[Rfam]
A member of the RNA family "mir-276 microRNA precursor family" from Brassicogethes aeneus, 85 nucleotides long. The literature on the family includes a 2010 paper in BMC Genomics by Skalsky et al., "Identification of microRNAs expressed in two mosquito vectors, Aedes albopictus and Culex quinquefasciatus".
RNA sequence: UUGCUGGUUUACCACUAGCGAGGUAUAGAGUUCCUACGUAUUUUAAAUUGUAGGAACUUCAUACCGUGCUCUUGGAUUUACCAAA
Numbered sequence: 001u002u003g004c005u006g007g008u009u010u011a012c013c014a015c016u017a018g019c020g021a022g023g024u025a026u027a028g029a030g031u032u033c034c035u036a037c038g039u040a041u042u043u044u045a046a047a048u049u050g051u052a053g054g055a056a057c058u059u060c061a062u063a064c065c066g067u068g069c070u071c072u073u074g075g076a077u078u079u080a081c082c083a084a085a
Stems, first nucleotide, its partner, number of pairs: 012075003017070004022065005028059010

The base pairs follow the family's consensus structure, which was predicted with RNAalifold. Rfam links the family to the GO terms miRNA-mediated post-transcriptional gene silencing and RISC complex. It scores 84 bits against the family's covariance model.